Record summary: This 91-nucleotide sequence from Anaerobacillus isosaccharinicus belongs to the Rfam family "c-di-GMP-I riboswitch aptamer".
[Rfam]
RNA sequence: AAGUGAAAAAGGCAAACCAUAGGAAACUAUGAGACGCAAAGCCAAGGGCCUGGACCGCGGGAAUUUCCGUGGAUGGCAGCCGGUUACCACA
Numbered sequence: 001a002a003g004u005g006a007a008a009a010a011g012g013c014a015a016a017c018c019a020u021a022g023g024a025a026a027c028u029a030u031g032a033g034a035c036g037c038a039a040a041g042c043c044a045a046g047g048g049c050c051u052g053g054a055c056c057g058c059g060g061g062a063a064u065u066u067c068c069g070u071g072g073a074u075g076g077c078a079g080c081c082g083g084u085u086a087c088c089a090c091a
Base pairs, nucleotide, nucleotide: 012037013036018031019030020029021028022027040085041084042083043082046081047080048077049076050075055072056071057070058069059068060067061066